About this RNA
A member of the RNA family "mir-21 microRNA precursor family" from Chanos chanos, 72 nucleotides long. Gene Ontology terms of the family: miRNA-mediated post-transcriptional gene silencing and RISC complex. For this family Rfam cites "The developmental miRNA profiles of zebrafish as determined by small RNA cloning" (Chen et al., Genes Dev, 2005). NCBI's taxonomy places the organism under Eukaryota, Craniata, Gnathostomata, Ostariophysi, Chanos.
RNA sequence: UGUCAGAUAGCUUAUCAGACUGGUGUUGGCUGUUAAAUUAUGUGUCAACAACAUUCUGUAGGCUGUCUGAAA
Number, nucleotide and partner (000 for none) at each position: 001u000002g000003u000004c000005a000006g000007a000008u065009a064010g063011c062012u061013u060014a059015u058016c000017a000018g056019a055020c000021u053022g052023g000024u050025g049026u048027u047028g046029g000030c044031u000032g000033u000034u000035a000036a000037a000038u000039u000040a000041u000042g000043u000044g030045u000046c028047a027048a026049c025050a024051a000052c022053a021054u000055u019056c018057u000058g015059u014060a013061g012062g011063c010064u009065g008066u000067c000068u000069g000070a000071a000072a000